The family of this 79-nucleotide RNA sequence from Setaria viridis is "Small nucleolar RNA SNORD25". The literature on the family includes a 2001 paper in Nucleic Acids Res by Qu et al., "Identification of 10 novel snoRNA gene clusters from Arabidopsis thaliana". Lineage of the source: Eukaryota > Streptophyta > Magnoliopsida > Panicoideae > Setaria.
RNA sequence: AACAACAGUGAUGAGUCCUUAUGGACCUGUAAUGAUUCUUGUGCUUGCACUUACGAACAAUUUAGGGGACAAAGUUGCA
Numbered sequence: 001a002a003c004a005a006c007a008g009u010g011a012u013g014a015g016u017c018c019u020u021a022u023g024g025a026c027c028u029g030u031a032a033u034g035a036u037u038c039u040u041g042u043g044c045u046u047g048c049a050c051u052u053a054c055g056a057a058c059a060a061u062u063u064a065g066g067g068g069a070c071a072a073a074g075u076u077g078c079a
Stems, first nucleotide, its partner, number of pairs: 003077004